[Rfam]
RNA sequence: UGGCUUAUGAUGAUAAUUUAACUAUCUUAGUGGAUUUCAGUGAGAUUGUUUUAUCAAGGAUCUGAAUGUUACACACAAUGAAGCCU
Numbered sequence: 001u002g003g004c005u006u007a008u009g010a011u012g013a014u015a016a017u018u019u020a021a022c023u024a025u026c027u028u029a030g031u032g033g034a035u036u037u038c039a040g041u042g043a044g045a046u047u048g049u050u051u052u053a054u055c056a057a058g059g060a061u062c063u064g065a066a067u068g069u070u071a072c073a074c075a076c077a078a079u080g081a082a083g084c085c086u
Stems, first nucleotide, its partner, number of pairs: 002085004